Shown here is a 245-nucleotide RNA from Desulfonema magnum, a member of the family "Bacterial large signal recognition particle RNA". Rfam classes the family as a non-coding RNA gene. It scores 135 bits against the family's covariance model. For this family Rfam cites "SRPDB: Signal Recognition Particle Database" (Rosenblad et al., Nucleic Acids Res, 2003). The family's consensus secondary structure is taken from published work. Rfam describes the family as follows. The signal recognition particle (SRP) is a universally conserved ribonucleoprotein involved in the co-translational targeting of proteins to membranes.

RNA sequence: UUGCGCUAGGUGGGGCGUUAGCGGUGCCCUGUUCCUGAGAUCCGCUAUAUGCAGGGCUGAAAUCCCUCUGGAGGGUUUUAUCCGAAAACUUGCGGUCAGGCUGAUCGGCCGCCGCGCAACAGACAGUCACGAACCUCGUCAGGUCCGGAAGGAAGCAGCGAUAAGUGAUGCCGUCUGUGUCGUGGAUCGAUCCCGGUCAUUUUUGGCUCAUGUCUGAGGAAAGAGAUUCGAUGGGGGGUGCGCAA
Numbered sequence: 001u002u003g004c005g006c007u008a009g010g011u012g013g014g015g016c017g018u019u020a021g022c023g024g025u026g027c028c029c030u031g032u033u034c035c036u037g038a039g040a041u042c043c044g045c046u047a048u049a050u051g052c053a054g055g056g057c058u059g060a061a062a063u064c065c066c067u068c069u070g071g072a073g074g075g076u077u078u079u080a081u082c083c084g085a086a087a088a089c090u091u092g093c094g095g096u097c098a099g100g101c102u103g104a105u106c107g108g109c110c111g112c113c114g115c116g117c118a119a120c121a122g123a124c125a126g127u128c129a130c131g132a133a134c135c136u137c138g139u140c141a142g143g144u145c146c147g148g149a150a151g152g153a154a155g156c157a158g159c160g161a162u163a164a165g166u167g168a169u170g171c172c173g174u175c176u177g178u179g180u181c182g183u184g185g186a187u188c189g190a191u192c193c194c195g196g197u198c199a200u201u202u203u204u205g206g207c208u209c210a211u212g213u214c215u216g217a218g219g220a221a222a223g224a225g226a227u228u229c230g231a232u233g234g235g236g237g238g239u240g241c242g243c244a245a
Stems, first nucleotide, its partner, number of pairs: 001245006009058003012030008034055004039050001064238007073229005079222001081220003086215001088213001091210001092207002094204002102199007112185005117179002120177005126169005136161004144153003